Rfam assigns this 107-nucleotide RNA sequence from Arabis alpina to the family "MIR162_1 microRNA precursor family". For this family Rfam cites "MicroRNAs in plants" (Reinhart et al., Genes Dev, 2002). The family is grouped with related families in Rfam's "MIR167 microRNA precursor clan". Lineage of the source: Eukaryota > Streptophytina > eudicotyledons > Gunneridae > Arabis. A search with the family's covariance model found it, with a score of 92 bits.
RNA sequence: AGUGAAGUCGCUGGAGGCAGCGGUUCAUCGAUCAAUUUUUUGUUUCGAAUGUUUGGAACUCGAAAGCACUAAUCGAUCGAUAAACCUCUGCAUCCAGCGCUUAUACU
Numbered sequence: 001a002g003u004g005a006a007g008u009c010g011c012u013g014g015a016g017g018c019a020g021c022g023g024u025u026c027a028u029c030g031a032u033c034a035a036u037u038u039u040u041u042g043u044u045u046c047g048a049a050u051g052u053u054u055g056g057a058a059c060u061c062g063a064a065a066g067c068a069c070u071a072a073u074c075g076a077u078c079g080a081u082a083a084a085c086c087u088c089u090g091c092a093u094c095c096a097g098c099g100c101u102u103a104u105a106c107u
Stems, first nucleotide, its partner, number of pairs: 013095003018090003022086004027081007036072002